[Rfam]
A member of the RNA family "Burkholderia RNA 7 (anti-hemB)" from Formivibrio citricus, 90 nucleotides long. Rfam classes the family as a small RNA. Rfam's curators write: This RNA motif was identified by computational search in b-proteobacteria Burkholderia. For this family Rfam cites "Identification of 22 candidate structured RNAs in bacteria using the CMfinder comparative genomics pipeline" (Weinberg et al., Nucleic Acids Res, 2007). The match comes from Rfam's covariance-model search (60 bits). Rfam links the family to the GO terms bacterial biofilm matrix and protein binding.

RNA sequence: CCUCCCGCUUCUCCUCCCUGAGCGGGGUUCCGGCUGGUCCGGAACGUCUAUGGCCCCGGUCUAUCUCCCUUUUGGACCGGGGUUUCUUUU
Numbered sequence: 001c002c003u004c005c006c007g008c009u010u011c012u013c014c015u016c017c018c019u020g021a022g023c024g025g026g027g028u029u030c031c032g033g034c035u036g037g038u039c040c041g042g043a044a045c046g047u048c049u050a051u052g053g054c055c056c057c058g059g060u061c062u063a064u065c066u067c068c069c070u071u072u073u074g075g076a077c078c079g080g081g082g083u084u085u086c087u088u089u090u
Base pairs, nucleotide, nucleotide: 004026005025006024007023008022009021027045028044029043030042031041032040033039054082055081056080057079058078059077060076061075062074063073